[Rfam]
The family of this 136-nucleotide RNA from Oryzias latipes is "Small nucleolar RNA SNORA5".
NCBI's taxonomy places the organism under Eukaryota, Gnathostomata, Teleostei, Clupeocephala, Oryzias.
Rfam classes the family as an H/ACA-box small nucleolar RNA.
The family is grouped with related families in Rfam's "SNORA5 clan".
Gene Ontology terms of the family: RNA processing and nucleolus.
It scores 75 bits against the family's covariance model.
ACA5 is a member of the H/ACA class of snoRNA that guide the sites of modification of uridines to pseudouridines.
RNA sequence: GGCAGCUUUGUCAAAUUCAGUGCCUCCUCCUUCAUGGAUGUCACUGGCCAAAAGGGCUGCUACAGUGAAGAUGUAGCUUAUGGGCCCCAGCGUGCCUCCACGCAGCAGCUGGGGAUAAAUAGUGCUACAAACACUU
Numbered sequence: 001g002g003c004a005g006c007u008u009u010g011u012c013a014a015a016u017u018c019a020g021u022g023c024c025u026c027c028u029c030c031u032u033c034a035u036g037g038a039u040g041u042c043a044c045u046g047g048c049c050a051a052a053a054g055g056g057c058u059g060c061u062a063c064a065g066u067g068a069a070g071a072u073g074u075a076g077c078u079u080a081u082g083g084g085c086c087c088c089a090g091c092g093u094g095c096c097u098c099c100a101c102g103c104a105g106c107a108g109c110u111g112g113g114g115a116u117a118a119a120u121a122g123u124g125c126u127a128c129a130a131a132c133a134c135u136u
Stems, first nucleotide, its partner, number of pairs: 002060004018046005024040001027037002073128005085114007